[Rfam]
RNA: Pestivirus internal ribosome entry site (IRES) including 5'UTR SLI
RNA sequence: GUAUACGCCCAGUUAGUUCAGGUGGACGUGUACGAUUGGGUAUCCCAAAUUAAUAAUUUGGUUUAGGGACUAAAUCCCCUGGCGAAGGCCGAAACAGGUUAACCAUACCUUUAGUAGGACGAGCAUAAUGGGGGACUAGUGGUGGCAGUGAGCUCCCUGGAUCACCGAAGCCCCGAGUACGGGGUAGUCGUCAAUGGUUCGACGCAUCAAGGAAUGCCUCGAGAUGCCAUGUGGACGAGGGCGUGCCCACGGUGUAUCUUAACCCAGGCGGGGGCCGCUUGGGUGAAAUAGGGUUGUUAUACAAGCCUUUGGGAGUACAGCCUGAUAGGGUGUUGCAGAGACCUGCUACACCACUAGUAUAAAAACUCUGCUGUACAUGGCAC
Numbered sequence: 001g002u003a004u005a006c007g008c009c010c011a012g013u014u015a016g017u018u019c020a021g022g023u024g025g026a027c028g029u030g031u032a033c034g035a036u037u038g039g040g041u042a043u044c045c046c047a048a049a050u051u052a053a054u055a056a057u058u059u060g061g062u063u064u065a066g067g068g069a070c071u072a073a074a075u076c077c078c079c080u081g082g083c084g085a086a087g088g089c090c091g092a093a094a095c096a097g098g099u100u101a102a103c104c105a106u107a108c109c110u111u112u113a114g115u116a117g118g119a120c121g122a123g124c125a126u127a128a129u130g131g132g133g134g135a136c137u138a139g140u141g142g143u144g145g146c147a148g149u150g151a152g153c154u155c156c157c158u159g160g161a162u163c164a165c166c167g168a169a170g171c172c173c174c175g176a177g178u179a180c181g182g183g184g185u186a187g188u189c190g191u192c193a194a195u196g197g198u199u200c201g202a203c204g205c206a207u208c209a210a211g212g213a214a215u216g217c218c219u220c221g222a223g224a225u226g227c228c229a230u231g232u233g234g235a236c237g238a239g240g241g242c243g244u245g246c247c248c249a250c251g252g253u254g255u256a257u258c259u260u261a262a263c264c265c266a267g268g269c270g271g272g273g274g275c276c277g278c279u280u281g282g283g284u285g286a287a288a289u290a291g292g293g294u295u296g297u298u299a300u301a302c303a304a305g306c307c308u309u310u311g312g313g314a315g316u317a318c319a320g321c322c323u324g325a326u327a328g329g330g331u332g333u334u335g336c337a338g339a340g341a342c343c344u345g346c347u348a349c350a351c352c353a354c355u356a357g358u359a360u361a362a363a364a365a366c367u368c369u370g371c372u373g374u375a376c377a378u379g380g381c382a383c
Stems, first nucleotide, its partner, number of pairs: 003031005009025003075134005082124002088120001089118002094112001096110004135358007142349007149319002152316006159259004164253004170185006188238005194230005199222004204217004239248003262284010291307002294304003320331004333373001335371006